Nucleotides: 199
Stems, first nucleotide, its partner, number of pairs: 007193005016079009032064006039057001083112005089107002092104001094102001113140002116137006123130001142184007
Number, partner (000 for none) and nucleotide at each position: 001000c002000u003000g004000a005000g006000a007193a008192g009191u010190a011189g012000a013000g014000g015000c016079g017078c018077a019076c020075u021074a022073a023072a024071u025000a026000u027000c028000a029000g030000u031000a032064g033063c034062g035061g036060u037059a038000a039057g040000c041000a042000g043000g044000g045000u046000g047000a048000u049000u050000c051000c052000g053000u054000u055000u056000a057039u058000g059037u060036a061035u062034c063033g064032c065000g066000a067000a068000a069000g070000g071024a072023u073022u074021u075020g076019g077018u078017g079016c080000c081000g082000a083112a084111g085110u086109g087108g088000u089107u090106g091000c092104g093000a094102c095000u096000u097000a098000u099000c100000a101000a102094g103000g104092u105000c106090c107089a108087c109086c110085g111084c112083u113140g114139g115000g116137g117136c118135u119134g120133u121132u122000a123130c124000c125000a126000a127000a128000u129000a130123g131000g132121g133120g134119c135118a136117g137116c138000a139114c140113u141000g142184c143183c144182a145181u146180a147179g148178u149000a150000u151000a152000u153000u154000c155000u156000g157000u158000c159000g160000g161000g162000a163000u164000g165000a166000c167000a168000g169000a170000u171000u172000g173000a174000c175000g176000u177000u178148a179147c180146u181145a182144u183143g184142g185000a186000g187000c188000g189011c190010u191009a192008c193007u194000g195000a196000a197000a198000g199000g